[Rfam]
RNA sequence: UGUCUCCCAGCCUGAGGUGCAGUGCUGCAUCUCUGGUCAGUUGGGAGUCUGAGAUGAAGCACUGUAGCUCAGGAAGGGAGAAGA
Numbered sequence: 001u002g003u004c005u006c007c008c009a010g011c012c013u014g015a016g017g018u019g020c021a022g023u024g025c026u027g028c029a030u031c032u033c034u035g036g037u038c039a040g041u042u043g044g045g046a047g048u049c050u051g052a053g054a055u056g057a058a059g060c061a062c063u064g065u066a067g068c069u070c071a072g073g074a075a076g077g078g079a080g081a082a083g084a
Base pairs, nucleotide, nucleotide: 011073012072013071016068018066019065020064021063022062023061024060025059026058028056029055030054031053032052033051035049036048037046038045
The family of this 84-nucleotide RNA sequence from Rattus norvegicus is "mir-143 microRNA precursor family". It is one of the family's seed sequences. The base pairs follow the family's consensus structure, which was predicted with RNAalifold. The organism belongs to Rattus, within Eukaryota. Rfam links the family to the GO terms miRNA-mediated post-transcriptional gene silencing and RISC complex.